Source information
A member of the RNA family "UnaL2 LINE 3' element" from Salmo trutta, 54 nucleotides long. The organism belongs to Salmo, within Eukaryota. Pairs were carried over by alignment from the consensus structure, which is taken from published work. The eel long interspersed element (LINE) UnaL2 and its partner short interspersed element (SINE) share a conserved 3' tail containing a stem-loop that is critical for their retrotransposition. Its family is annotated with transposition, RNA-mediated in the Gene Ontology.

Nucleotides: 054
Base pairs, nucleotide, nucleotide: 013043014041016039020036021035022034023033024032025031
Number, partner (000 for none) and nucleotide at each position: 001000u002000g003000u004000a005000u006000u007000c008000a009000c010000u011000a012000c013043u014041g015000a016039a017000a018000g019000u020036u021035g022034c023033u024032c025031u026000g027000g028000a029000u030000a031025a032024g033023a034022g035021u036020g037000u038000c039016u040000g041014c042000u043013a044000a045000a046000u047000g048000a049000c050000u051000a052000a053000u054000u